[Rfam]
RNA sequence: UGAAAUAUAAAUGUCAUCGAAUUCAGUCGGUCACGUGUCCGGUUCCGAGUUCUCCCUGGCGCAUCCAGGUGCCACAGGUGUUCCUCCCUCGCCUGAUUAUGGCGAUGCGCCCUCCUGCCUCGCUCCUCGCUUGUCGAAGAGCGAGGCUUUUU
Numbered sequence: 001u002g003a004a005a006u007a008u009a010a011a012u013g014u015c016a017u018c019g020a021a022u023u024c025a026g027u028c029g030g031u032c033a034c035g036u037g038u039c040c041g042g043u044u045c046c047g048a049g050u051u052c053u054c055c056c057u058g059g060c061g062c063a064u065c066c067a068g069g070u071g072c073c074a075c076a077g078g079u080g081u082u083c084c085u086c087c088c089u090c091g092c093c094u095g096a097u098u099a100u101g102g103c104g105a106u107g108c109g110c111c112c113u114c115c116u117g118c119c120u121c122g123c124u125c126c127u128c129g130c131u132u133g134u135c136g137a138a139g140a141g142c143g144a145g146g147c148u149u150u151u152u
Base pairs, nucleotide, nucleotide: 058111059110060109061108062107063106064105065104074098075095076094077093078092079091080090117147118146119145120144121143122142123141124140125139127137128136
RNA: Rhizobiales sRNA Atu_C7
Organism: Paenirhizobium selenitireducens